[Rfam]
RNA sequence: UUUCGUUAUCCUUCGCCAUCAUUUGACACAUCUGAUUUGCCAUGCAUAAAAAAAGCGGCUGUAAAGCCGCUUUUUUGUAUCG
Numbered sequence: 001u002u003u004c005g006u007u008a009u010c011c012u013u014c015g016c017c018a019u020c021a022u023u024u025g026a027c028a029c030a031u032c033u034g035a036u037u038u039g040c041c042a043u044g045c046a047u048a049a050a051a052a053a054a055g056c057g058g059c060u061g062u063a064a065a066g067c068c069g070c071u072u073u074u075u076u077g078u079a080u081c082g
Stems, first nucleotide, its partner, number of pairs: 005027004053072008
RNA: Salmonella enterica sRNA STnc40